The record is a 52-nucleotide RNA sequence from Loktanella salsilacus, which matches "ffh sRNA" in Rfam. It scores 61 bits against the family's covariance model.
RNA sequence: UUGUCAAAGGAUCGCCCCUCGUCAGCGCGUUGCGCCCACGGGGGCGUUACUG
Dot-bracket structure: ...............(((((((..((((...))))..)))))))........

The organism belongs to Loktanella, within Bacteria. On this family, see Meyer et al., BMC Genomics 2009: "Identification of candidate structured RNAs in the marine organism 'Candidatus Pelagibacter ubique'". By type it is a small RNA.